[Rfam]
RNA sequence: UCAUCACCAUCAUCAUCCCUAGUUAGUCUUUCGGGAGAUGUACGCGUACCCGGGAGGCAGGAUUCUCCCGGUGGUUAAAUCAAAUGUGUAUUUAGAUUUUAAGCCCUCGGGAAACCAAACUCUCGAGGGCUUUUUACU
Numbered sequence: 001u002c003a004u005c006a007c008c009a010u011c012a013u014c015a016u017c018c019c020u021a022g023u024u025a026g027u028c029u030u031u032c033g034g035g036a037g038a039u040g041u042a043c044g045c046g047u048a049c050c051c052g053g054g055a056g057g058c059a060g061g062a063u064u065c066u067c068c069c070g071g072u073g074g075u076u077a078a079a080u081c082a083a084a085u086g087u088g089u090a091u092u093u094a095g096a097u098u099u100u101a102a103g104c105c106c107u108c109g110g111g112a113a114a115c116c117a118a119a120c121u122c123u124c125g126a127g128g129g130c131u132u133u134u135u136a137c138u
Stems, first nucleotide, its partner, number of pairs: 009047002011040004017035003021031001049071002052069006101132012
This 138-nucleotide RNA from Vibrio sp. V28_P6S34P95 belongs to the Rfam family "Histidine operon leader". The family's consensus secondary structure is taken from published work.